[Rfam]
RNA sequence: GUGAUUAUAGAUUAAUAGGUAAAUCCUUUAUUUUCCAAGUAAAUGUUGUGAGUUCAAAUCUCACUAAUCACA
Dot-bracket structure: (((((((..((((........)))).(((((.......)))))....(((((.......)))))))))))).
RNA: tRNA